[Rfam]
RNA sequence: UUUAGAUAGUUGAUAUAUAAUACUGCGUUAUCUAUCCGAAAUCAAAAAGCAAAUGAUGUAGACAUGAAAAUUAGCAGAUCUGAA
Numbered sequence: 001u002u003u004a005g006a007u008a009g010u011u012g013a014u015a016u017a018u019a020a021u022a023c024u025g026c027g028u029u030a031u032c033u034a035u036c037c038g039a040a041a042u043c044a045a046a047a048a049g050c051a052a053a054u055g056a057u058g059u060a061g062a063c064a065u066g067a068a069a070a071u072u073a074g075c076a077g078a079u080c081u082g083a084a
Stems, first nucleotide, its partner, number of pairs: 001084007

Small nucleolar RNA snoR27: an 84-nucleotide sequence from Gigaspora margarita.
By type it is a C/D-box small nucleolar RNA.
Clan: snR68 clan.
Gene Ontology terms of the family: RNA processing and nucleolus.
The organism belongs to Gigaspora, within Eukaryota.